[Rfam]
Rfam assigns this 89-nucleotide sequence from Pelobacter propionicus to the family "pan motif". It scores 38 bits against the family's covariance model. The base pairs follow the family's consensus structure, which is taken from published work.

Nucleotides: 089
Base pairs, nucleotide, nucleotide: 001026002025003024004022005021006020007019008018010017011016056085057084058083059081061079062078063077065076066075067074
Number, partner (000 for none) and nucleotide at each position: 001026c002025a003024a004022c005021g006020g007019c008018u009000a010017c011016c012000c013000a014000c015000g016011g017010g018008a019007g020006c021005c022004g023000a024003u025002u026001g027000g028000a029000a030000g031000c032000u033000g034000a035000u036000g037000g038000c039000c040000a041000u042000a043000c044000a045000g046000u047000a048000a049000c050000c051000a052000c053000a054000u055000a056085c057084c058083g059081c060000g061079c062078g063077g064000a065076u066075u067074c068000g069000a070000a071000g072000g073000c074067g075066a076065a077063c078062c079061g080000g081059g082000a083058c084057g085056g086000a087000a088000g089000g